[Rfam]
RNA sequence: CGCACUGUAUGGUAUCUGCACACAAUAGCUGUUUCCUAUUGUGGUGUUCAAUAACCAGUGCAAUAACAAAUCAGUAAGUGGCAUCGUUGGUUUUCAAGCCUUAUGUGUUUGAAGACCUGGUUUUUAUGCUGAUACAAGU
Numbered sequence: 001c002g003c004a005c006u007g008u009a010u011g012g013u014a015u016c017u018g019c020a021c022a023c024a025a026u027a028g029c030u031g032u033u034u035c036c037u038a039u040u041g042u043g044g045u046g047u048u049c050a051a052u053a054a055c056c057a058g059u060g061c062a063a064u065a066a067c068a069a070a071u072c073a074g075u076a077a078g079u080g081g082c083a084u085c086g087u088u089g090g091u092u093u094u095c096a097a098g099c100c101u102u103a104u105g106u107g108u109u110u111g112a113a114g115a116c117c118u119g120g121u122u123u124u125u126a127u128g129c130u131g132a133u134a135c136a137a138g139u
Stems, first nucleotide, its partner, number of pairs: 002061006015054001018047004024040005064128002068124003071120004080109005